RNA sequence: AGCGCAGAAGGACGAAAAGACCCCGGGACCUUUACUAUACCUUGGUAUUGUCGUUCGCUGCUGGUUGUGUAGAAUAGGCGGGAGACGGUGAAGCAUGGUCGCUAGAUUGUGUGGAGUCGACAGGUGAAAUACCGUUCUGCUGGCAGUGGGCGUCUAACCUCGAACAGUUAUCCUGUUCAGGGACAGUGCCUGGCGGGUAGUUUAACUGGGGCGGUUGCCUCCUAAAGAGUAACGGAGGCGCUCAAAGGUCCGCUCAACCCGGUUGGCAAUCGGGUUACGAGUGUAAUCAUAUAAGCGGGCUUGACUGUGAGAGUGACGGCUCGAGCAGGGACGAAAGUCGGAGAUAAUGAUCCGGUGCCGGUGUACGGACGCGGCAUCGCUCAACGGAUAAAAGGUACCCCGGGGAUAACAGGCUGAUCAUUCCCAAGAGUCCAUAUCGACGGGAUGGUUUGGCACCUCGAUGUCGGCUCGUCGCAUCCUGGGGCUGGAGCAGGUCCCAAGGGUUCGGCUGUUCGCCGAUUAAAGCGGCACGCGAGCUGGGUUCAGAACGUCGUGAGACAGUUUGGUCUCUAUCCUCUGCGCUCGUU
Number, nucleotide and partner (000 for none) at each position: 001a583002g582003c581004g580005c579006a578007g577008a576009a000010g575011g574012a573013c000014g570015a569016a000017a000018a000019g000020a000021c000022c404023c403024c402025g401026g400027g399028a396029c395030c394031u393032u392033u000034a201035c200036u199037a198038u000039a000040c000041c193042u192043u000044g190045g189046u188047a187048u000049u000050g154051u000052c152053g151054u150055u149056c148057g147058c146059u145060g144061c143062u142063g141064g140065u139066u000067g137068u000069g000070u000071a000072g000073a000074a000075u000076a000077g136078g135079c134080g133081g132082g000083a000084g118085a117086c116087g000088g000089u000090g000091a000092a000093g112094c111095a110096u109097g108098g107099u106100c105101g000102c000103u000104a000105g100106a099107u098108u097109g096110u095111g094112u093113g000114g000115a000116g086117u085118c084119g000120a000121c000122a000123g000124g000125u000126g000127a000128a000129a000130u000131a000132c081133c080134g079135u078136u077137c067138u000139g065140c064141u063142g062143g061144c060145a059146g058147u057148g056149g055150g054151c053152g052153u000154c050155u000156a000157a000158c181159c180160u179161c000162g178163a177164a176165c175166a174167g173168u000169u000170a000171u000172c000173c167174u166175g165176u164177u163178c162179a160180g159181g158182g000183a000184c000185a000186g000187u047188g046189c045190c044191u000192g042193g041194c000195g000196g000197g000198u037199a036200g035201u034202u000203u000204a216205a215206c214207u213208g000209g000210g000211g000212c000213g207214g206215u205216u204217g239218c238219c237220u236221c235222c234223u000224a000225a000226a000227g000228a000229g000230u000231a000232a000233c000234g222235g221236a220237g219238g218239c217240g385241c000242u342243c341244a000245a000246a000247g000248g300249u299250c298251c297252g296253c295254u280255c279256a000257a275258c274259c273260c272261g271262g270263u000264u000265g000266g000267c000268a000269a000270u262271c261272g260273g259274g258275u257276u000277a000278c000279g255280a254281g290282u289283g000284u000285a000286a000287u000288c000289a282290u281291a000292u000293a000294a000295g253296c252297g251298g250299g249300c248301u000302u000303g000304a000305c328306u327307g326308u325309g000310a000311g322312a321313g320314u000315g000316a000317c000318g000319g000320c313321u312322c311323g000324a000325g308326c307327a306328g305329g000330g339331a338332c337333g000334a000335a000336a000337g332338u331339c330340g000341g243342a242343g000344a000345u000346a000347a000348u000349g000350a000351u000352c000353c379354g378355g377356u376357g375358c374359c373360g000361g372362u371363g000364u000365a000366c000367g000368g000369a000370c000371g362372c361373g359374g358375c357376a356377u355378c354379g353380c000381u000382c000383a000384a000385c240386g000387g000388a000389u000390a000391a000392a032393a031394g030395g029396u028397a000398c000399c027400c026401c025402g024403g023404g022405g000406a000407u000408a000409a000410c000411a000412g000413g454414c453415u452416g000417a451418u448419c447420a446421u445422u444423c443424c442425c000426a000427a000428g438429a437430g000431u000432c000433c000434a000435u000436a000437u429438c428439g000440a000441c000442g424443g423444g422445a421446u420447g419448g418449u000450u000451u417452g415453g414454c413455a000456c000457c000458u000459c000460g000461a000462u000463g000464u000465c540466g538467g537468c536469u535470c532471g529472u528473c527474g526475c525476a000477u000478c503479c502480u000481g498482g497483g496484g495485c494486u493487g000488g000489a000490g000491c000492a000493g486494g485495u484496c483497c482498c481499a000500a000501g000502g479503g478504u000505u519506c518507g517508g516509c515510u000511g000512u000513u000514c000515g509516c508517c507518g506519a505520u000521u000522a000523a000524a000525g475526c474527g473528g472529c471530a000531c000532g470533c000534g000535a469536g468537c467538u466539g000540g465541g000542u000543u000544c000545a000546g564547a563548a562549c561550g559551u558552c557553g000554u000555g000556a000557g552558a551559c550560a000561g549562u548563u547564u546565g000566g000567u000568c000569u015570c014571u000572a000573u012574c011575c010576u008577c007578u006579g005580c004581g003582c002583u001584c000585g000586u000587u000
RNA: Bacterial large subunit ribosomal RNA, nucleotides 2220 to 2806